A member of the RNA family "Small nucleolar RNA Z43", 102 nucleotides long. Rfam 15.1 lists 859 matches to the family in 240 species.

RNA sequence: GGACAGUGACGAUUGAUAUUAAGGUCUCGUUCGUCGUAAAAACGGCCGUAAAAAGCCUAUUUGCCGACCAUUCUGUUAUAUCACCACCCAUAUUCUGAGUCC
Numbered sequence: 001g002g003a004c005a006g007u008g009a010c011g012a013u014u015g016a017u018a019u020u021a022a023g024g025u026c027u028c029g030u031u032c033g034u035c036g037u038a039a040a041a042a043c044g045g046c047c048g049u050a051a052a053a054a055g056c057c058u059a060u061u062u063g064c065c066g067a068c069c070a071u072u073c074u075g076u077u078a079u080a081u082c083a084c085c086a087c088c089c090a091u092a093u094u095c096u097g098a099g100u101c102c
Stems, first nucleotide, its partner, number of pairs: 001102004050062003
Rfam links the family to the GO terms nucleolus and RNA processing. For this family Rfam cites "The high diversity of snoRNAs in plants: identification and comparative study of 120 snoRNA genes from Oryza sativa" (Chen et al., Nucleic Acids Res, 2003). Pairs were carried over by alignment from the consensus structure, which was predicted with PFOLD. It is annotated as a C/D-box small nucleolar RNA.